[Rfam]
This 427-nucleotide part of an RNA from Biomphalaria glabrata belongs to the Rfam family "Eukaryotic large subunit ribosomal RNA". The match comes from Rfam's covariance-model search (3111 bits).
RNA sequence: CGACCUCAGAUCGGGCGAGAUUACCCGCUGAAUUUAAGCAUAUAACUAAGCGGAGGAAAAGAAACUAACAAGGAUUUCCUUAGUAACGGCGAGUGAAGCGGAAAUAGCCCAGCACCGAAUCCCCCAGUGUCAUGCUGGCGGGAACUGUGGUGUAUGGGACGCCACCAGUCGUAUGCGCGGGGCAUCGAAGUCCUCCUGAUCGGGGCCAUCACCCAGAGUGGGUGUAAGGCCUUUGCAGGUGCCUUGCCGUGCGGCCGCGAGCGUCUCAGGAGUCGGGUUGUUUGGGAAUGCAGCCCAAAGCGGGUGGUAAACUCCAUCUAAGGCUAAAUACAUGCACGAGUCCGAUAGCGAACAAGUACCGUGAGGGAAAGUUGAAAAGAACUUUGAAGAGAGAGUUCAAGAGUACGUGAAACCGCUCAGAGGUAAA
Number, nucleotide and partner (000 for none) at each position: 001c000002g000003a000004c000005c000006u000007c000008a000009g000010a000011u000012c000013g000014g000015g000016c000017g000018a000019g000020a000021u000022u000023a000024c055025c053026c052027g051028c050029u049030g000031a000032a000033u000034u000035u042036a041037a000038g000039c000040a000041u036042a035043u000044a000045a000046c000047u000048a000049a029050g028051c027052g026053g025054a000055g024056g000057a000058a000059a000060a000061g000062a000063a000064a000065c072066u071067a000068a000069c000070a000071a066072g065073g000074a000075u000076u103077u102078c101079c100080u000081u000082a000083g000084u000085a000086a094087c093088g000089g000090c000091g000092a000093g087094u086095g000096a000097a000098g000099c000100g079101g078102a077103a076104a000105u000106a325107g324108c323109c322110c000111a000112g000113c152114a151115c150116c149117g148118a000119a146120u143121c142122c141123c140124c138125c137126a136127g135128u000129g000130u000131c000132a000133u000134g000135c127136u126137g125138g124139c000140g123141g122142g121143a120144a000145c000146u119147g000148u117149g116150g115151u114152g113153u000154a000155u000156g000157g266158g265159a000160c263161g262162c261163c000164a000165c259166c000167a000168g000169u000170c253171g252172u251173a250174u249175g248176c000177g000178c000179g000180g244181g243182g242183c241184a240185u239186c238187g000188a000189a000190g206191u000192c205193c204194u203195c202196c000197u000198g000199a000200u000201c000202g195203g194204g193205g192206c190207c000208a000209u000210c000211a000212c000213c000214c218215a000216g000217a000218g214219u000220g000221g231222g230223u000224g000225u000226a000227a000228g000229g000230c222231c221232u000233u000234u000235g000236c000237a000238g186239g185240u184241g183242c182243c181244u180245u000246g000247c000248c175249g174250u173251g172252c171253g170254g000255c000256c000257g000258c000259g165260a000261g162262c161263g160264u000265c158266u157267c000268a000269g000270g000271a000272g000273u000274c000275g296276g295277g294278u293279u292280g291281u290282u000283u000284g000285g000286g000287a000288a000289u000290g281291c280292a279293g278294c277295c276296c275297a000298a000299a000300g000301c000302g319303g318304g317305u316306g315307g000308u000309a000310a000311a000312c000313u000314c000315c306316a305317u304318c303319u302320a000321a000322g109323g108324c107325u106326a000327a000328a000329u000330a000331c000332a000333u000334g000335c000336a000337c000338g000339a000340g000341u000342c000343c000344g000345a000346u000347a000348g000349c000350g000351a000352a000353c000354a000355a000356g000357u000358a000359c366360c365361g000362u000363g000364a000365g360366g359367g000368a000369a000370a000371g000372u000373u000374g000375a000376a000377a000378a000379g000380a000381a000382c393383u392384u391385u390386g000387a000388a000389g000390a385391g384392a383393g382394a000395g000396u000397u000398c000399a000400a000401g000402a000403g000404u000405a000406c000407g000408u000409g000410a000411a000412a000413c000414c000415g000416c000417u000418c000419a000420g000421a000422g000423g000424u000425a000426a000427a000